A member of the RNA family "Small nucleolar RNA SNORA79" from Bos taurus, 147 nucleotides long. Pairs were carried over by alignment from the consensus structure, which was predicted with RNAalifold. Rfam links the family to the GO terms nucleolus and RNA processing. The source organism's lineage runs through Eukaryota, Chordata, Amniota, Ruminantia and Bos. The match comes from Rfam's covariance-model search (59 bits). From the family's description: ACA65 (SNORA79) is a member of the H/ACA class of snoRNAs that guide the sites of modification of uridines to pseudouridines. This snoRNA was identified by computational screening and its expression in mouse experimentally verified by Northern blot and primer extension analysis.

RNA sequence: UGAUGGCUGUUCCUCUCCUUGCUUGAAGCCUUGGGUGGUAGGGUUUUGGUCCACUGUGUAUCUAAGCUGAUCGGUCUUCUCUCAGGACACCAUGGGGAUGGGCGGUGGUCCAUUACUGUCUUCUGAUUUUUAUGGAGUCAAGCAAUU
Numbered sequence: 001u002g003a004u005g006g007c008u009g010u011u012c013c014u015c016u017c018c019u020u021g022c023u024u025g026a027a028g029c030c031u032u033g034g035g036u037g038g039u040a041g042g043g044u045u046u047u048g049g050u051c052c053a054c055u056g057u058g059u060a061u062c063u064a065a066g067c068u069g070a071u072c073g074g075u076c077u078u079c080u081c082u083c084a085g086g087a088c089a090c091c092a093u094g095g096g097g098a099u100g101g102g103c104g105g106u107g108g109u110c111c112a113u114u115a116c117u118g119u120c121u122u123c124u125g126a127u128u129u130u131u132a133u134g135g136a137g138u139c140a141a142g143c144a145a146u147u
Stems, first nucleotide, its partner, number of pairs: 001056002004053003008049001014043003020037004069139003082126005087119003095111003099107001